[Rfam]
RNA sequence: AGGAGGAACAACCCCAGUGGCGGGGCAGCUCUGCAGCCCUGGAGUCAGCCCCCGCAGUAACUGUGGAGCUCACGGUCUGCAGGGCCUGGAGGUUCCGGGGUGGG
Numbered sequence: 001a002g003g004a005g006g007a008a009c010a011a012c013c014c015c016a017g018u019g020g021c022g023g024g025g026c027a028g029c030u031c032u033g034c035a036g037c038c039c040u041g042g043a044g045u046c047a048g049c050c051c052c053c054g055c056a057g058u059a060a061c062u063g064u065g066g067a068g069c070u071c072a073c074g075g076u077c078u079g080c081a082g083g084g085c086c087u088g089g090a091g092g093u094u095c096c097g098g099g100g101u102g103g104g
Stems, first nucleotide, its partner, number of pairs: 002096004009088002012084003019077003023073001025071001027070009039057003

mir-8834 microRNA precursor family: a 104-nucleotide RNA sequence from Canis lupus. The base pairs follow the family's consensus structure, which was predicted with RNAalifold. The match comes from Rfam's covariance-model search (66 bits). Rfam 15.1 lists 13,926 matches to the family in 17 species.